RNA sequence: UAAGCAGGUCACAAUGACAGUGCUUCAUUUUGGGUGAGUACUGUCAUUAUCCUGCUGAAAGAAAAGCCAUGUUGAUUAUUUCUGAUUUUGCCAUUCUGGGGGUAAAAUCAUGACACCUUUUAAAAAAAAAUA
Numbered sequence: 001u002a003a004g005c006a007g008g009u010c011a012c013a014a015u016g017a018c019a020g021u022g023c024u025u026c027a028u029u030u031u032g033g034g035u036g037a038g039u040a041c042u043g044u045c046a047u048u049a050u051c052c053u054g055c056u057g058a059a060a061g062a063a064a065a066g067c068c069a070u071g072u073u074g075a076u077u078a079u080u081u082c083u084g085a086u087u088u089u090g091c092c093a094u095u096c097u098g099g100g101g102g103u104a105a106a107a108u109c110a111u112g113a114c115a116c117c118u119u120u121u122a123a124a125a126a127a128a129a130a131u132a
Stems, first nucleotide, its partner, number of pairs: 003056006018043008070123001074119002083110010094099001